[Rfam]
RNA sequence: GGGAAUUUAGCUUAAUUGGUAGAGCAUCUAGCUUACAACUAGAUGGAAGUAGUUCAAAUCUACUAAUUCCUA
Numbered sequence: 001g002g003g004a005a006u007u008u009a010g011c012u013u014a015a016u017u018g019g020u021a022g023a024g025c026a027u028c029u030a031g032c033u034u035a036c037a038a039c040u041a042g043a044u045g046g047a048a049g050u051a052g053u054u055c056a057a058a059u060c061u062a063c064u065a066a067u068u069c070c071u072a
Stems, first nucleotide, its partner, number of pairs: 001071007010025004027043005048064005
RNA: tRNA